[Rfam]
RNA sequence: ACUCCCGCGAGGGGGCGUCUGGUGGAAGUCAUAGGUGCGCAACCGUGUCGAGCGAAAGCGAAGCGCCGUAAGGCUUCGGGGACGGGUGAGCCGGCGGCCAGCGGCGAAGCCCAAUAUCUGUCGGGAGUUCCCGGGGUAGUGGCGACGGGAUGGGUGCGAAAUCUAGCGGU
Numbered sequence: 001a002c003u004c005c006c007g008c009g010a011g012g013g014g015g016c017g018u019c020u021g022g023u024g025g026a027a028g029u030c031a032u033a034g035g036u037g038c039g040c041a042a043c044c045g046u047g048u049c050g051a052g053c054g055a056a057a058g059c060g061a062a063g064c065g066c067c068g069u070a071a072g073g074c075u076u077c078g079g080g081g082a083c084g085g086g087u088g089a090g091c092c093g094g095c096g097g098c099c100a101g102c103g104g105c106g107a108a109g110c111c112c113a114a115u116a117u118c119u120g121u122c123g124g125g126a127g128u129u130c131c132c133g134g135g136g137u138a139g140u141g142g143c144g145a146c147g148g149g150a151u152g153g154g155u156g157c158g159a160a161a162u163c164u165a166g167c168g169g170u
Base pairs, nucleotide, nucleotide: 002015003014004013005012006011028170029169030168032166035162036161040156041155043153044152045151046150048148049147050146064144065143066142067141073137074136075135077133078132079131080130081129082128083127084112085111086110087109090105091104092103093102
Annotation:
The record is a 170-nucleotide RNA sequence, which matches "Group II catalytic intron D1-D4-3" in Rfam. Pairs were carried over by alignment from the consensus structure.